[Rfam]
RNA sequence: UGGACAGAUUAUUGUAUUCGACUUUAUUCACACUGUUUUUAAACGGAAAGUGAAUCAGUUAACAUAAUAGACUCCU
Numbered sequence: 001u002g003g004a005c006a007g008a009u010u011a012u013u014g015u016a017u018u019c020g021a022c023u024u025u026a027u028u029c030a031c032a033c034u035g036u037u038u039u040u041a042a043a044c045g046g047a048a049a050g051u052g053a054a055u056c057a058g059u060u061a062a063c064a065u066a067a068u069a070g071a072c073u074c075c076u
Base pairs, nucleotide, nucleotide: 002075003074004073009070010069011068012067013066014065015064017062018061020060021059023057026055027054028053029052030051031050034045035044036043
RNA: MIR6152 microRNA precursor family